The record is a 135-nucleotide RNA from Herbiconiux oxytropis, which matches "mraW RNA" in Rfam.
[Rfam]
RNA sequence: UCUGAGUCGCAGCCCCUGACUCCCAGCCGUUCAUCCGCCCUGGCACACUUCCCCGGUGCCAGGUCGAACGCCCUGACACACUUCCCCGGUGCCAGGUCGGAAUGGAUGGGGAUCAGGGGCUGCGAACCGGAUCCG
Numbered sequence: 001u002c003u004g005a006g007u008c009g010c011a012g013c014c015c016c017u018g019a020c021u022c023c024c025a026g027c028c029g030u031u032c033a034u035c036c037g038c039c040c041u042g043g044c045a046c047a048c049u050u051c052c053c054c055g056g057u058g059c060c061a062g063g064u065c066g067a068a069c070g071c072c073c074u075g076a077c078a079c080a081c082u083u084c085c086c087c088g089g090u091g092c093c094a095g096g097u098c099g100g101a102a103u104g105g106a107u108g109g110g111g112a113u114c115a116g117g118g119g120c121u122g123c124g125a126a127c128c129g130g131a132u133c134c135g
Base pairs, nucleotide, nucleotide: 010122011121012120013119014118015117016116018114019113021111022110023109024108025107027105028104029103030102034101035100036099037098039096040095041094042093043092044091045090046089
The family's RNA type in Rfam is cis-regulatory element.